[Rfam]
RNA sequence: ACUGCAUUUCCAGGGGCCACGGCAGAAACCUUUGUGUCAUGGCCUCUGUCGGAUUAUCAACCUGUGAAUUUUGCU
Number, nucleotide and partner (000 for none) at each position: 001a000002c000003u000004g000005c000006a000007u000008u000009u000010c000011c000012a000013g046014g045015g044016g043017c042018c041019a000020c000021g075022g074023c073024a072025g071026a070027a069028a040029c000030c000031u000032u000033u000034g000035u000036g000037u000038c000039a000040u028041g018042g017043c016044c015045u014046c013047u000048g000049u000050c064051g063052g062053a000054u060055u059056a000057u000058c000059a055060a054061c000062c052063u051064g050065u000066g000067a000068a000069u027070u026071u025072u024073g023074c022075u021
RNA: Mammalian CPEB3 ribozyme